[Rfam]
RNA: Ribosomal protein L20 leader
RNA sequence: GAGUAAAAGAAGAAGCACCCGCUUCUCACCUGAUUGACGCAGUAUGCUGUCGAUAGGUCAUGAUUUGAUUAUUUGGAUUUAUUCUACUUAGUCUAUCAGUGUGGGUGUUAUUGCAUCCGCACUUUUUUGUUUGU
Numbered sequence: 001g002a003g004u005a006a007a008a009g010a011a012g013a014a015g016c017a018c019c020c021g022c023u024u025c026u027c028a029c030c031u032g033a034u035u036g037a038c039g040c041a042g043u044a045u046g047c048u049g050u051c052g053a054u055a056g057g058u059c060a061u062g063a064u065u066u067g068a069u070u071a072u073u074u075g076g077a078u079u080u081a082u083u084c085u086a087c088u089u090a091g092u093c094u095a096u097c098a099g100u101g102u103g104g105g106u107g108u109u110a111u112u113g114c115a116u117c118c119g120c121a122c123u124u125u126u127u128u129g130u131u132u133g134u
Stems, first nucleotide, its partner, number of pairs: 011026006028058003036051003039047002100121009